This 188-nucleotide RNA from Bacillus sp. FJAT-49711 belongs to the Rfam family "Lysine riboswitch aptamer".
The match comes from Rfam's covariance-model search (120 bits).
The family's consensus secondary structure is taken from published work.
Taxonomically the source falls in Bacillus (Bacteria, Bacillati, Bacilli, Caryophanales).
RNA sequence: AAUUUCGAUAGAGGUUGCAAACUUUCAAUAGUAAAAAUCAUGAGAAGAAGGGCUUCAAUGAAUGGUUUUGAAAGGGUUAGUUUGCCGAAGUGGAAAAGGAGCCCUUUUUCUAUUCCGCUGGUCCUGCGUUUAAGAAAUGUAGGAUUGUCAAAAUGGAUUUUAAAUCCUUUUGGAGAGCUAUCUCAUGU
Numbered sequence: 001a002a003u004u005u006c007g008a009u010a011g012a013g014g015u016u017g018c019a020a021a022c023u024u025u026c027a028a029u030a031g032u033a034a035a036a037a038u039c040a041u042g043a044g045a046a047g048a049a050g051g052g053c054u055u056c057a058a059u060g061a062a063u064g065g066u067u068u069u070g071a072a073a074g075g076g077u078u079a080g081u082u083u084g085c086c087g088a089a090g091u092g093g094a095a096a097a098g099g100a101g102c103c104c105u106u107u108u109u110c111u112a113u114u115c116c117g118c119u120g121g122u123c124c125u126g127c128g129u130u131u132a133a134g135a136a137a138u139g140u141a142g143g144a145u146u147g148u149c150a151a152a153a154u155g156g157a158u159u160u161u162a163a164a165u166c167c168u169u170u171u172g173g174a175g176a177g178c179u180a181u182c183u184c185a186u187g188u
Stems, first nucleotide, its partner, number of pairs: 007182005017085007025076001034069008089119007097111004120146011148173006

Background
Its family is annotated with lysine biosynthetic process in the Gene Ontology.